[Rfam]
Small nucleolar RNA SNORD116: a 92-nucleotide sequence from Echinops telfairi.
RNA sequence: AGAUCGAUGUUGCCUCCCCCGUCAGCAUUCCUCAGGAAAGCUGAACAAGUGAGUGACAACUCCCUGCCGUCUUGUUCAUCACACUGAGGUGC
Number, nucleotide and partner (000 for none) at each position: 001a000002g000003a090004u089005c088006g000007a000008u000009g000010u000011u000012g000013c000014c000015u000016c000017c000018c000019c000020c000021g000022u000023c000024a000025g000026c055027a054028u053029u052030c051031c000032u047033c000034a000035g046036g000037a000038a000039a000040g000041c000042u000043g000044a000045a000046c035047a032048a000049g000050u000051g030052a029053g028054u027055g026056a000057c000058a000059a000060c000061u000062c000063c000064c000065u000066g000067c000068c000069g000070u000071c000072u000073u000074g000075u000076u000077c000078a000079u000080c000081a000082c000083a000084c000085u000086g000087a000088g005089g004090u003091g000092c000
Record summary:
Rfam's curators put it in the seed alignment. For this family Rfam cites "Identification of brain-specific and imprinted small nucleolar RNA genes exhibiting an unusual genomic organization" (Cavaille et al., Proc Natl Acad Sci U S A, 2000).